[Rfam]
RNA sequence: GACGACCGCAGACUAACAUUUGACCGUCCGUAUUAUUUGAAAAAAAAACUAUGAUUAGUAUUUUUAUUGUUAUUAGAUGAUAAAAUAUGGAUAAUACUUUGUGUGACUAUUUUUCAAUUUUUUCAUAAAAUAUUAAAUAAGAUGGUCAGUCAAACGUUGGACAUGAAAACCUACAACUGCACUUAAA
Number, nucleotide and partner (000 for none) at each position: 001g000002a000003c000004g000005a000006c000007c000008g000009c000010a000011g000012a000013c160014u159015a158016a157017c156018a000019u154020u153021u152022g151023a150024c149025c000026g147027u000028c145029c144030g143031u142032a000033u140034u139035a138036u137037u000038u000039g000040a000041a000042a000043a000044a000045a000046a000047a000048a000049c000050u000051a000052u000053g000054a000055u000056u000057a000058g000059u000060a000061u000062u000063u000064u000065u000066a000067u000068u000069g000070u000071u000072a000073u000074u000075a000076g000077a000078u000079g000080a000081u000082a000083a000084a000085a000086u000087a000088u000089g000090g000091a000092u000093a000094a000095u000096a000097c000098u000099u000100u000101g000102u000103g000104u000105g000106a000107c000108u000109a000110u000111u000112u000113u000114u000115c000116a000117a000118u000119u000120u000121u000122u000123u000124c000125a000126u000127a000128a000129a000130a000131u000132a000133u000134u000135a000136a000137a036138u035139a034140a033141g000142a031143u030144g029145g028146u000147c026148a000149g024150u023151c022152a021153a020154a019155c000156g017157u016158u015159g014160g013161a000162c000163a000164u000165g000166a000167a000168a000169a000170c000171c000172u000173a000174c000175a000176a000177c000178u000179g000180c000181a000182c000183u000184u000185a000186a000187a000
This 187-nucleotide RNA sequence from Oryza meridionalis belongs to the Rfam family "MIR812 microRNA precursor family". The source organism's lineage runs through Eukaryota, Streptophyta, Petrosaviidae, Oryzinae and Oryza.